[Rfam]
RNA sequence: GGCUUAAAGUGUUCGUAGCCGGCCGUGUAAGUCCGCUGUGAAAUCCAGGCGCUUAACGUCUGGGCGUGCAGCGGAUACUGCACUGGCUUGGGACCGGACGGUGUCGAGGCUAUUCCAAGAGUAGGGGUGAAAUCCUAAAAUUCCUGGAGGAGCGCCUGUGGCGGAAGCGCUCGACAAGUACGGAUCCGACGGUGAGGAACGAAAGCCAGGGGAGCAAAGCGGAUUAGAUACCCGCGUAGUCCUGGCCGUUAACAUUGCCUGUUUGAUGUCAGCCAACCUUCGGGGUUGGCUGGUGCCGAAGUGAAAACGUUAAACAGGCCGCCUGGGUAGUACGGUCGCAAGGCUGAAACUUAAAGGAAU
Numbered sequence: 001g002g003c004u005u006a007a008a009g010u011g012u013u014c015g016u017a018g019c020c021g022g023c024c025g026u027g028u029a030a031g032u033c034c035g036c037u038g039u040g041a042a043a044u045c046c047a048g049g050c051g052c053u054u055a056a057c058g059u060c061u062g063g064g065c066g067u068g069c070a071g072c073g074g075a076u077a078c079u080g081c082a083c084u085g086g087c088u089u090g091g092g093a094c095c096g097g098a099c100g101g102u103g104u105c106g107a108g109g110c111u112a113u114u115c116c117a118a119g120a121g122u123a124g125g126g127g128u129g130a131a132a133u134c135c136u137a138a139a140a141u142u143c144c145u146g147g148a149g150g151a152g153c154g155c156c157u158g159u160g161g162c163g164g165a166a167g168c169g170c171u172c173g174a175c176a177a178g179u180a181c182g183g184a185u186c187c188g189a190c191g192g193u194g195a196g197g198a199a200c201g202a203a204a205g206c207c208a209g210g211g212g213a214g215c216a217a218a219g220c221g222g223a224u225u226a227g228a229u230a231c232c233c234g235c236g237u238a239g240u241c242c243u244g245g246c247c248g249u250u251a252a253c254a255u256u257g258c259c260u261g262u263u264u265g266a267u268g269u270c271a272g273c274c275a276a277c278c279u280u281c282g283g284g285g286u287u288g289g290c291u292g293g294u295g296c297c298g299a300a301g302u303g304a305a306a307a308c309g310u311u312a313a314a315c316a317g318g319c320c321g322c323c324u325g326g327g328u329a330g331u332a333c334g335g336u337c338g339c340a341a342g343g344c345u346g347a348a349a350c351u352u353a354a355a356g357g358a359a360u
Stems, first nucleotide, its partner, number of pairs: 001323003009320001011200004016194001018193003022087003025083004030079002032075009045063007091187003094183003098179002102176007109153002113149005119143002124135003161168002205246006214240002219235004257319006265297001267295012301308002325352003334345004
Dot-bracket structure: (((.....(.((((.(.(((.(((((((.(((((((((((....(((((((.....)))))))...)))))))))..)))))).)))...((((((.((..(((((((((..(((((.((...(((......)))......)).)))))..)).......((....)).))))))).)).))).)))...))))..))))....((((((...((...((((.........))))...))))))))..........((((((..(.((((((((((((.....)))))))))))).)...((....)).....)))))))))).(((......((((....))))....)))........
Shown here is a 360-nucleotide part of an RNA from Candidatus Haloredivivus sp. G17, a member of the family "Archaeal small subunit ribosomal RNA". The family has 86 seed sequences and 709 matches in Rfam 15.1. Taxonomically the source falls in Candidatus Haloredivivus (Archaea, Methanobacteriati, Methanobacteriota, Candidatus Nanohaloarchaea).